[Rfam]
RNA sequence: AUGCAUAUUACAAUUUACAGGUUCUAUAAUAAGAAGACCUCGUGAUUACGGGGUUUUUUGUUAUAUGGACUUUUAAAAACCGUGUUUUUUGCGGUAAGUUCGGGGGCUAUUAGCCCUUUUUUC
Numbered sequence: 001a002u003g004c005a006u007a008u009u010a011c012a013a014u015u016u017a018c019a020g021g022u023u024c025u026a027u028a029a030u031a032a033g034a035a036g037a038c039c040u041c042g043u044g045a046u047u048a049c050g051g052g053g054u055u056u057u058u059u060g061u062u063a064u065a066u067g068g069a070c071u072u073u074u075a076a077a078a079a080c081c082g083u084g085u086u087u088u089u090u091g092c093g094g095u096a097a098g099u100u101c102g103g104g105g106g107c108u109a110u111u112a113g114c115c116c117u118u119u120u121u122u123c
Stems, first nucleotide, its partner, number of pairs: 034057009104116004